[Rfam]
RNA sequence: AAGUAAGGGCGCUUGGUGGAUGCCUUGGCGCAUACAGGCGAUGAAGGACGUGGCUAGCUGCGAUAAGCCUCGUGGAGCCGCAAGCAGGCAGUGAUACGGGGAUUUCCGAAUGGGGUAACCCAGCCUCUUAGAGGCUAGCCCCGCAAGGGGCGGCGAACCCAGGGAAGUGAACCAUCUCAGUACCUGGAGGAAAAGAAAACAACCGUGAUUCCCUGAGUAGCGGCGAGCGAAACGGGAAGAGCCUAAACCAGUCACCCUGGUGGCUGGGGUCGUGGGGGUGCUUCGGGCGCAAGCCGGGAAGUUACCAAACAACGUGUUAGCCGAAGUGCUUGGAAAAGCACGCCAAAGAACGUGAAAGCCGUGUAAGCGAAAACACGUUGUCUUUCUGGAAGCACUACCCGAGUAACGCGGGACACGUGAGAUCUUGCGUGAAUCCGGGAGAACCAUCUCCUAAGGCUAAAUACUCGUAUGCGACCGAUAGUGAACUAGUACCGUGAGGGAAAGGUGAAAAGAACCCCGGUGAGGGGAGUGAAAUAGAACCUGAAACCAAGCGCUUACAAG
Dot-bracket structure: ......((((((((((.....(((..(((((((((((((......((((((........))).....(((((((..(((.......))).....)))))))...)))....(((....)))((((((...)))))).(((((....))))).))...((((((.....((....))......))))).).........((....))..(((((......((.....)).....))))..((((....(((((((......)))))))......(((..(((((.......................(.((((((((((.((....(((((......)))))..(...).(((.......)))....))...)))))))))).)......)))))...))).....((((((((.........))))))))......(((((......)))))..))))..)..)).))))))).))...............((....))....)).........((((.....)))).............).....)))))))))).....
RNA: Bacterial large subunit ribosomal RNA, nucleotides 9 to 569